[Rfam]
Small nucleolar RNA SNORA84: a 132-nucleotide RNA sequence from Heterocephalus glaber.
Pairs were carried over by alignment from the consensus structure, which was predicted with WAR.
The family's RNA type in Rfam is H/ACA-box small nucleolar RNA.
RNA sequence: GCCCUGUGGUUGCUGGAGGCUGUUGAACAGUGUGGCACUCCAGUGGGUAUGGUGGGCCAGAGCAGUCCUGUGAUUUUUGCAUGGGAGCUGUGUUUCCUCAGCAGCUGCCAUAGCCCGGUCACUGGUACAUGG
Numbered sequence: 001g002c003c004c005u006g007u008g009g010u011u012g013c014u015g016g017a018g019g020c021u022g023u024u025g026a027a028c029a030g031u032g033u034g035g036c037a038c039u040c041c042a043g044u045g046g047g048u049a050u051g052g053u054g055g056g057c058c059a060g061a062g063c064a065g066u067c068c069u070g071u072g073a074u075u076u077u078u079g080c081a082u083g084g085g086a087g088c089u090g091u092g093u094u095u096c097c098u099c100a101g102c103a104g105c106u107g108c109c110a111u112a113g114c115c116c117g118g119u120c121a122c123u124g125g126u127a128c129a130u131g132g
Stems, first nucleotide, its partner, number of pairs: 001057004007049002010046008019036005068124001070122006079114002081111004086106006